A member of the RNA family "L31-Actinobacteria ribosomal protein leader" from Scardovia wiggsiae, 47 nucleotides long. The literature on the family includes a 2020 paper in BMC Microbiol by Eckert and Weinberg, "Discovery of 20 novel ribosomal leader candidates in bacteria and archaea". It is annotated as a cis-regulatory leader.
[Rfam]
RNA sequence: AAGGUUUCCGGUUCACGCCUGCUAAAGGGGCAUGGCGACCCGGUUCC
Numbered sequence: 001a002a003g004g005u006u007u008c009c010g011g012u013u014c015a016c017g018c019c020u021g022c023u024a025a026a027g028g029g030g031c032a033u034g035g036c037g038a039c040c041c042g043g044u045u046c047c
Base pairs, nucleotide, nucleotide: 003047004046008043009042010041011040016037017036018035019034020032021031022030023029